[Rfam]
Annotation:
Small nucleolar RNA SNORA23: a 178-nucleotide RNA sequence from Salvelinus namaycush. Its family is annotated with RNA processing and nucleolus in the Gene Ontology.
RNA sequence: GGUGAACAGGGUGUGUGGUGCCUGUCCAUGUUACGUGCUGCCGUCUGGCUGUGUCUUACAGUCUGUGCGGCGGUGCUCACUCCACACCUGCAGCCAUAGAGCCACUGGAGAUCAUAGUACUGACCUGUGACGUCUCUGACUCCUCACCACGGGCCAGCCUCCAUACUCUCCCACAAAC
Numbered sequence: 001g002g003u004g005a006a007c008a009g010g011g012u013g014u015g016u017g018g019u020g021c022c023u024g025u026c027c028a029u030g031u032u033a034c035g036u037g038c039u040g041c042c043g044u045c046u047g048g049c050u051g052u053g054u055c056u057u058a059c060a061g062u063c064u065g066u067g068c069g070g071c072g073g074u075g076c077u078c079a080c081u082c083c084a085c086a087c088c089u090g091c092a093g094c095c096a097u098a099g100a101g102c103c104a105c106u107g108g109a110g111a112u113c114a115u116a117g118u119a120c121u122g123a124c125c126u127g128u129g130a131c132g133u134c135u136c137u138g139a140c141u142c143c144u145c146a147c148c149a150c151g152g153g154c155c156a157g158c159c160u161c162c163a164u165a166c167u168c169u170c171c172c173a174c175a176a177a178c
Base pairs, nucleotide, nucleotide: 013091014090029084030080031079035077036075037074038073039072040071041070043068044067045065047063050060051059052058107171108170109169110168111167120157121156122155124153125152127150128149129148132142135139
A reference for the family is Huttenhofer et al. (2001), "RNomics: an experimental approach that identifies 201 candidates for novel, small, non-messenger RNAs in mouse", EMBO J. The source organism's lineage runs through Eukaryota, Metazoa, Bilateria, Vertebrata and Salvelinus. The family's RNA type in Rfam is H/ACA-box small nucleolar RNA.